[Rfam]
RNA sequence: CUUGACCGAACCCAGCCACAGCGGCCUGCCCUCGCGGUCCUGCCCGUAGGCGGCCAACAGCGCCUGCGCCUC
Numbered sequence: 001c002u003u004g005a006c007c008g009a010a011c012c013c014a015g016c017c018a019c020a021g022c023g024g025c026c027u028g029c030c031c032u033c034g035c036g037g038u039c040c041u042g043c044c045c046g047u048a049g050g051c052g053g054c055c056a057a058c059a060g061c062g063c064c065u066g067c068g069c070c071u072c
Stems, first nucleotide, its partner, number of pairs: 015025003031068001033066001035062002041056002044053003
RNA: ASpks TB sRNA
Organism: Rhodococcus maanshanensis